[Rfam]
RNA sequence: GAGACAACCUUAUGGGGCAAGACUUGUGUCAGUGGGGCUUUGAUACUCACUGAGUCUGCCCCUGAGUGUGUCCCU
Numbered sequence: 001g002a003g004a005c006a007a008c009c010u011u012a013u014g015g016g017g018c019a020a021g022a023c024u025u026g027u028g029u030c031a032g033u034g035g036g037g038c039u040u041u042g043a044u045a046c047u048c049a050c051u052g053a054g055u056c057u058g059c060c061c062c063u064g065a066g067u068g069u070g071u072c073c074c075u
Stems, first nucleotide, its partner, number of pairs: 001074001003072004009066004014062006021056003029053008037044001
Dot-bracket structure: (.((((..((((.((((((.(((.....(((((((((......).)))))))))))))))))))))..)))).).

mir-9229 microRNA precursor family: a 75-nucleotide RNA from Myotis davidii. The organism belongs to Myotis, within Eukaryota. Gene Ontology terms of the family: miRNA-mediated post-transcriptional gene silencing and RISC complex. It scores 83 bits against the family's covariance model.